RNA sequence: AUAUUUACCUGGCAGGAGGGAUCCCAUGAUCACAAAGGUGGUUUUCUCAGAGUGAGACUUAACCAUUGUCUCCGAGGUGCUGAUUCCUGAUACUUCCCCAAAUGUGAGACGCUCGACUGCAUACUUUAUGGUAGUGGGGGCCUGAGUUUGCACUCUCCCCUA
Numbered sequence: 001a002u003a004u005u006u007a008c009c010u011g012g013c014a015g016g017a018g019g020g021a022u023c024c025c026a027u028g029a030u031c032a033c034a035a036a037g038g039u040g041g042u043u044u045u046c047u048c049a050g051a052g053u054g055a056g057a058c059u060u061a062a063c064c065a066u067u068g069u070c071u072c073c074g075a076g077g078u079g080c081u082g083a084u085u086c087c088u089g090a091u092a093c094u095u096c097c098c099c100a101a102a103u104g105u106g107a108g109a110c111g112c113u114c115g116a117c118u119g120c121a122u123a124c125u126u127u128a129u130g131g132u133a134g135u136g137g138g139g140g141c142c143u144g145a146g147u148u149u150g151c152a153c154u155c156u157c158c159c160c161u162a
Base pairs, nucleotide, nucleotide: 012120013119014118015117016048017047018046019045020044021043024041025040026039027038049088050087052085054084056081058079063077064076092113093111094109095108098106136161137160138159139158140157144153146151

Background:
The record is a 162-nucleotide RNA sequence from Cercocebus atys, which matches "U1 spliceosomal RNA" in Rfam. By type it is a spliceosomal small nuclear RNA. The organism belongs to Cercocebus, within Eukaryota. It scores 91 bits against the family's covariance model.